[Rfam]
RNA sequence: AAUUCAGUUUGUAGGAACAAAGAGAAAUAAAUCUAUUCUAUACCCGAUAAGUAGUAAUAUGCAAUGGGG
Numbered sequence: 001a002a003u004u005c006a007g008u009u010u011g012u013a014g015g016a017a018c019a020a021a022g023a024g025a026a027a028u029a030a031a032u033c034u035a036u037u038c039u040a041u042a043c044c045c046g047a048u049a050a051g052u053a054g055u056a057a058u059a060u061g062c063a064a065u066g067g068g069g
Stems, first nucleotide, its partner, number of pairs: 003022002007018004043068003051060003

The record is a 69-nucleotide RNA from Chenopodium quinoa, which matches "Plastid-clpP 5UTR RNA" in Rfam.
NCBI's taxonomy places the organism under Eukaryota, Embryophyta, Mesangiospermae, Atripliceae, Chenopodium.
The family's RNA type in Rfam is cis-regulatory element.
The match comes from Rfam's covariance-model search (80 bits).
For this family Rfam cites "Retrograde signaling in plants: A critical review focusing on the GUN pathway and beyond" (Richter et al., Plant Commun, 2023).